Actinobacteria sRNA Ms_IGR-5: a 196-nucleotide RNA sequence from Pilimelia anulata. By type it is a small RNA. Taxonomically the source falls in Pilimelia (Bacteria, Actinomycetota, Micromonosporales, Micromonosporaceae). The literature on the family includes a 2013 paper in RNA by Li et al., "Identification of small RNAs in Mycobacterium smegmatis using heterologous Hfq". A search with the family's covariance model found it, with a score of 88 bits.

RNA sequence: ACACGGGAAGGGAGGUGGUUCCGAGUUGAUCAGCAUUGGGACGCGUGAGGUGGCUGUCCGCUAGCAGCCACGACUGCCCGUCGCCGGGUCCGCCGCUGCGCGGCUGGCGAAUAUCGGCAGCCACCCGACCCCCGGGGUUCCCGGCCACUCGUCCAUGGCCGGCGCGCAACCGCGCGGACCCCGGGGGUCGUUCACG
Numbered sequence: 001a002c003a004c005g006g007g008a009a010g011g012g013a014g015g016u017g018g019u020u021c022c023g024a025g026u027u028g029a030u031c032a033g034c035a036u037u038g039g040g041a042c043g044c045g046u047g048a049g050g051u052g053g054c055u056g057u058c059c060g061c062u063a064g065c066a067g068c069c070a071c072g073a074c075u076g077c078c079c080g081u082c083g084c085c086g087g088g089u090c091c092g093c094c095g096c097u098g099c100g101c102g103g104c105u106g107g108c109g110a111a112u113a114u115c116g117g118c119a120g121c122c123a124c125c126c127g128a129c130c131c132c133c134g135g136g137g138u139u140c141c142c143g144g145c146c147a148c149u150c151g152u153c154c155a156u157g158g159c160c161g162g163c164g165c166g167c168a169a170c171c172g173c174g175c176g177g178a179c180c181c182c183g184g185g186g187g188u189c190g191u192u193c194a195c196g
Stems, first nucleotide, its partner, number of pairs: 014058006059109007067101002072094001074092001126190013141162007